[Rfam]
RNA sequence: GGCAGCAACAUCCCCGCGGGUUGGGACGGCCAAAGGAACGGCCGCCAGUGAAUCCGCUGCAGCC
Numbered sequence: 001g002g003c004a005g006c007a008a009c010a011u012c013c014c015c016g017c018g019g020g021u022u023g024g025g026a027c028g029g030c031c032a033a034a035g036g037a038a039c040g041g042c043c044g045c046c047a048g049u050g051a052a053u054c055c056g057c058u059g060c061a062g063c064c
Stems, first nucleotide, its partner, number of pairs: 001064003005060003013050001014048001016057007023049001025046001027044005

The record is a 64-nucleotide sequence, which matches "nadA riboswitch" in Rfam. The family's RNA type in Rfam is small RNA. A reference for the family is Huang et al. (2020), "Structure and ligand binding of the ADP-binding domain of the NAD(+) riboswitch", RNA. The base pairs follow the family's consensus structure, which is taken from published work.